[Rfam]
RNA sequence: AGAUGUGCGAGAGGGCGCGAGUGCGAUGAGUAGGGUUUACCUGAAAGGCGGGCUCGCCGAAGUGCUAUGGUGCUGGGCUUAUGUCGAAUAGGCAUGAGACUGUCGCAAAAAGGUUGCCCAAUCUUUUUGCGAGGAGCUUUCACAUCA
Dot-bracket structure: .....((.(((.....((((((.((.......(((....)))......)).))))))...(((((....)))))((.((((((((.....)))))))).)).(((((((((((........)))))))))))....))).)).....